The family of this 53-nucleotide sequence from Massilia sp. Root335 is "nhaA-I RNA". Rfam's curators write: Acidobacteria, Alphaproteobacteria, Betaproteobacteria and Gammaproteobacteria, Verrucomicrobia, cand. division NC10. The base pairs follow the family's consensus structure, which is taken from published work. It scores 39 bits against the family's covariance model. By type it is a riboswitch.
RNA sequence: GGGUGAUCAUACUGCUCCGGUAUGACAGGAUUUGCGCUGGUCGGGCCGCCACG
Numbered sequence: 001g002g003g004u005g006a007u008c009a010u011a012c013u014g015c016u017c018c019g020g021u022a023u024g025a026c027a028g029g030a031u032u033u034g035c036g037c038u039g040g041u042c043g044g045g046c047c048g049c050c051a052c053g
Base pairs, nucleotide, nucleotide: 005026007025008024009023010022011021012020035053036052038051039050040049041048